[Rfam]
Nucleotides: 076
Base pairs, nucleotide, nucleotide: 014043015042016041017040020076021075022074023073024072025071026070027039028038029037048065049064050063051062053060054059
Number, partner (000 for none) and nucleotide at each position: 001000a002000u003000u004000g005000u006000a007000c008000g009000u010000u011000c012000a013000a014043g015042g016041c017040c018000a019000u020076g021075g022074c023073a024072g025071a026070a027039g028038c029037a030000c031000u032000c033000a034000c035000a036000g037029u038028g039027u040017g041016g042015c043014c044000c045000u046000g047000u048065c049064a050063g051062a052000c053060u054059c055000c056000a057000g058000u059054g060053g061000a062051u063050c064049u065048g066000c067000a068000a069000a070026u071025u072024c073023u074022g075021c076020u